[Rfam]
RNA sequence: UGGAUUCUCUCUCAACUUGCUUUCGGAGCAACGAUCGAGUUCUUUGGUAACUUAAUUGCUCUGGGGAAAGUCCCCGAACCUCUGACGAAGAGCGAUCGCGCUGUAAUGGGUGCUGUCCUACUCUCUGCUUGCAUUGCGUUGAAGGUUUACCUGAGCUGGCAAGCGUUACAAGGGGUAGGAAAUAGUUCAAUUCCAUACAGUCAUGCAAGUGUGACCCGUUAGGUGUCGCUGUGCAGAAUGGGGCUUAUUGAGGGGUGGAUCC
Numbered sequence: 001u002g003g004a005u006u007c008u009c010u011c012u013c014a015a016c017u018u019g020c021u022u023u024c025g026g027a028g029c030a031a032c033g034a035u036c037g038a039g040u041u042c043u044u045u046g047g048u049a050a051c052u053u054a055a056u057u058g059c060u061c062u063g064g065g066g067a068a069a070g071u072c073c074c075c076g077a078a079c080c081u082c083u084g085a086c087g088a089a090g091a092g093c094g095a096u097c098g099c100g101c102u103g104u105a106a107u108g109g110g111u112g113c114u115g116u117c118c119u120a121c122u123c124u125c126u127g128c129u130u131g132c133a134u135u136g137c138g139u140u141g142a143a144g145g146u147u148u149a150c151c152u153g154a155g156c157u158g159g160c161a162a163g164c165g166u167u168a169c170a171a172g173g174g175g176u177a178g179g180a181a182a183u184a185g186u187u188c189a190a191u192u193c194c195a196u197a198c199a200g201u202c203a204u205g206c207a208a209g210u211g212u213g214a215c216c217c218g219u220u221a222g223g224u225g226u227c228g229c230u231g232u233g234c235a236g237a238a239u240g241g242g243g244c245u246u247a248u249u250g251a252g253g254g255g256u257g258g259a260u261c262c
Stems, first nucleotide, its partner, number of pairs: 002262005007255003011252002015210006023064007037053005043047001068246003072243004084096001086094002098113004116180002123175004130170002133167001134158001136156002144151002213229001217225003
A member of the RNA family "RNase MRP" from Araneus ventricosus, 262 nucleotides long. Rfam's curators write: RNase MRP is an enzymatically active ribonucleoprotein with two distinct roles in eukaryotes. In mitochondria it plays a direct role in the initiation of mitochondrial DNA replication. It scores 83 bits against the family's covariance model. Rfam links the family to the GO terms rRNA processing, ribonuclease MRP activity and ribonuclease MRP complex.